The record is an 85-nucleotide sequence from Proteiniborus ethanoligenes, which matches "c-di-GMP-I-GGC riboswitch aptamer" in Rfam. It scores 69 bits against the family's covariance model. Pairs were carried over by alignment from the consensus structure, which is taken from published work.

RNA sequence: ACCGAUAAAGGCAAACCUAGCGAAAGCUAGGGGCGCAAAGCUAAAGGGCCUUCCUUAGAAAUAAGAUGGCAGCCAGUUACCGAAA
Numbered sequence: 001a002c003c004g005a006u007a008a009a010g011g012c013a014a015a016c017c018u019a020g021c022g023a024a025a026g027c028u029a030g031g032g033g034c035g036c037a038a039a040g041c042u043a044a045a046g047g048g049c050c051u052u053c054c055u056u057a058g059a060a061a062u063a064a065g066a067u068g069g070c071a072g073c074c075a076g077u078u079a080c081c082g083a084a085a
Stems, first nucleotide, its partner, number of pairs: 003082002011036002016031006034072001039078004046074002048070003